The family of this 69-nucleotide RNA sequence from Probosciger aterrimus is "Small nucleolar RNA SNORD77". Rfam classes the family as a C/D-box small nucleolar RNA. U77 belongs to the C/D family of snoRNAs. It is predicted to guide 2'O-ribose methylation of large 28S rRNA subunit at position A1521. The C/D snoRNAs U44, U47, U74, U75, U76, U78, U79, U80 and U81 share the same host gene as U77 (non-coding). The family has 21 seed sequences and 396 matches in Rfam 15.1. Its family is annotated with RNA processing and nucleolus in the Gene Ontology.
[Rfam]
RNA sequence: UUGUUGAGAUUGUUGCAACUUUUGAGCAGAUUGAAUCUCCAAGAAGAUUCUAUUUUCUCUGAGAUAUUA
Numbered sequence: 001u002u003g004u005u006g007a008g009a010u011u012g013u014u015g016c017a018a019c020u021u022u023u024g025a026g027c028a029g030a031u032u033g034a035a036u037c038u039c040c041a042a043g044a045a046g047a048u049u050c051u052a053u054u055u056u057c058u059c060u061g062a063g064a065u066a067u068u069a
Stems, first nucleotide, its partner, number of pairs: 002066003006039005013029004044056005